Shown here is a 90-nucleotide sequence from Parablautia intestinalis, a member of the family "c-di-GMP-I riboswitch aptamer". From the family's description: GEMM was predicted in a large-scale screen for bacterial structured RNA regulatory elements. The family's consensus secondary structure is taken from published work.
RNA sequence: UUGCACUUAUGGCAAACCGCCGGAAACGGCGGGACAGCAAAGCCAGAGGCUAAGGGGCUCGGUACGCUCUAUGCUCGUUCGGCUACCGGA
Dot-bracket structure: ...........((...((((((....))))))....))..((((.(((((....((((.......))))...)))...))))))......
Numbered sequence: 001u002u003g004c005a006c007u008u009a010u011g012g013c014a015a016a017c018c019g020c021c022g023g024a025a026a027c028g029g030c031g032g033g034a035c036a037g038c039a040a041a042g043c044c045a046g047a048g049g050c051u052a053a054g055g056g057g058c059u060c061g062g063u064a065c066g067c068u069c070u071a072u073g074c075u076c077g078u079u080c081g082g083c084u085a086c087c088g089g090a
Stems, first nucleotide, its partner, number of pairs: 012038002017032006041084004046080002048075003055069004